[Rfam]
A member of the RNA family "Bacterial RNase P class A" from Epidermidibacterium keratini, 396 nucleotides long.

RNA sequence: UGAGUCGGGUGGGCGGUCGCGAGACGUACGCGUCUCGAGGAACGUCCGGACUCCACAGAGCAGGGUGGUUGCUAACGGCAACCUGGGGCGACCCACGGGACAGUGCCACAGAAAACAGACCGCCCGCGCUUCGGCGCGGGUAAGGGUGAAACGGCGGUGUAAGAGACCACCAGCGCCGCGGGUGACCGUGGCGGCUUGGUAAACCCCACCCGGAGCAAGGUCGAGAGGUACGACGGUUCGCCGUCGUACUGCACCAGCGAUCGAGGGCUGCUCGCCCGAGCUGGUGGGUAGACCGCUUGAGCCCGUCGGCGACGACGGGCCUAGAUGGAUGGCCGCCCAUCGCGCACCGGCGACGGUGCGCGGGGACAGGAUCCGGCGUACAGCCCGACUCAUCCG
Number, nucleotide and partner (000 for none) at each position: 001u392002g391003a390004g389005u388006c387007g386008g385009g384010u383011g381012g337013g336014c335015g334016g333017u332018c331019g000020c037021g036022a035023g034024a033025c032026g031027u000028a000029c000030g000031c026032g025033u024034c023035u022036c021037g020038a000039g000040g000041a000042a379043c378044g377045u000046c376047c375048g374049g373050a372051c215052u214053c213054c212055a000056c000057a000058g273059a272060g271061c270062a000063g211064g210065g209066u208067g207068g082069u081070u080071g079072c078073u000074a000075a000076c000077g000078g072079c071080a070081a069082c068083c097084u095085g094086g093087g092088g000089c000090g000091a000092c087093c086094c085095a084096c000097g083098g206099g205100a000101c000102a000103g204104u203105g200106c199107c198108a000109c000110a000111g000112a000113a000114a000115a000116c000117a000118g000119a000120c145121c144122g141123c140124c139125c138126g137127c136128g135129c134130u000131u000132c000133g000134g129135c128136g127137c126138g125139g124140g123141u122142a000143a000144g121145g120146g000147u000148g000149a000150a000151a000152c000153g171154g170155c000156g168157g167158u166159g000160u000161a000162a000163g000164a000165g000166a158167c157168c156169a000170c154171c153172a000173g195174c193175g192176c191177c190178g189179c188180g187181g186182g000183u000184g000185a000186c181187c180188g179189u178190g177191g176192c175193g174194g000195c173196u000197u000198g107199g106200u105201a000202a000203a104204c103205c099206c098207c067208a066209c065210c064211c063212g054213g053214a052215g051216c000217a000218a000219g294220g293221u292222c291223g000224a000225g000226a000227g000228g000229u000230a000231c000232g000233a000234c000235g000236g000237u000238u000239c000240g000241c000242c000243g000244u000245c000246g000247u000248a000249c000250u000251g000252c000253a285254c284255c283256a282257g281258c280259g000260a000261u000262c000263g000264a000265g277266g276267g275268c274269u000270g061271c060272u059273c058274g268275c267276c266277c265278g000279a000280g258281c257282u256283g255284g254285u253286g000287g000288g000289u000290a000291g222292a221293c220294c219295g000296c000297u000298u000299g000300a000301g320302c319303c318304c317305g316306u315307c314308g313309g000310c000311g000312a000313c308314g307315a306316c305317g304318g303319g302320c301321c000322u000323a000324g000325a000326u000327g000328g000329a000330u000331g018332g017333c016334c015335g014336c013337c012338c000339a000340u000341c000342g000343c000344g000345c000346a000347c000348c000349g000350g000351c000352g000353a000354c000355g000356g000357u000358g000359c000360g000361c000362g000363g000364g000365g000366a000367c000368a000369g000370g000371a000372u050373c049374c048375g047376g046377c044378g043379u042380a000381c011382a000383g010384c009385c008386c007387g006388a005389c004390u003391c002392a001393u000394c000395c000396g000
Gene Ontology terms of the family: tRNA processing, dimeric ribonuclease P complex and ribonuclease P activity. Taxonomically the source falls in Epidermidibacterium (Bacteria, Bacillati, Actinomycetota, Sporichthyaceae).